[Rfam]
RNA sequence: UCAGGCUCUGAUUGUCCAAACGCAAUUCUUGUGAUUUUAAAUCAAGAACUGUGAAUGGACAUCACCGCUCGG
Numbered sequence: 001u002c003a004g005g006c007u008c009u010g011a012u013u014g015u016c017c018a019a020a021c022g023c024a025a026u027u028c029u030u031g032u033g034a035u036u037u038u039a040a041a042u043c044a045a046g047a048a049c050u051g052u053g054a055a056u057g058g059a060c061a062u063c064a065c066c067g068c069u070c071g072g
Stems, first nucleotide, its partner, number of pairs: 002071001004069003009064004014060005021053004026048006
A member of the RNA family "mir-219 microRNA precursor family" from Brassicogethes aeneus, 72 nucleotides long.
A reference for the family is Lim et al. (2003), "Vertebrate microRNA genes", Science.
The source organism's lineage runs through Eukaryota, Cucujiformia, Cucujoidea, Nitidulidae and Brassicogethes.